[Rfam]
RNA sequence: CUGCAGUCAAUUAAGCUGACUGGGCGCCUUUGCUGGUGGGUGCCCAGUGUGCAGUGGCUGCAGACAGCAACCUCUUCAGUAGUGUAUGCAGCCUGUUACUUACAUGGGCUGCUUCAAGGGACCUUGGAGACACUG
Numbered sequence: 001c002u003g004c005a006g007u008c009a010a011u012u013a014a015g016c017u018g019a020c021u022g023g024g025c026g027c028c029u030u031u032g033c034u035g036g037u038g039g040g041u042g043c044c045c046a047g048u049g050u051g052c053a054g055u056g057g058c059u060g061c062a063g064a065c066a067g068c069a070a071c072c073u074c075u076u077c078a079g080u081a082g083u084g085u086a087u088g089c090a091g092c093c094u095g096u097u098a099c100u101u102a103c104a105u106g107g108g109c110u111g112c113u114u115c116a117a118g119g120g121a122c123c124u125u126g127g128a129g130a131c132a133c134u135g
Stems, first nucleotide, its partner, number of pairs: 002053004019048004025042004079122002089111006
Small nucleolar RNA SNORA70: a 135-nucleotide RNA sequence from Cavia porcellus. Rfam classes the family as an H/ACA-box small nucleolar RNA. snoRNA U70 seems to be exclusive to mammals and is a member of the H/ACA class of snoRNA which contain H (ANANNA) and ACA box motifs. H/ACA box snoRNAs are involved in the conversion of uridines to pseudouridines (5-ribosyluracil) a constituent of structural RNAs (transfer, ribosomal, small nuclear, and small nucleolar). It is one of the family's seed sequences.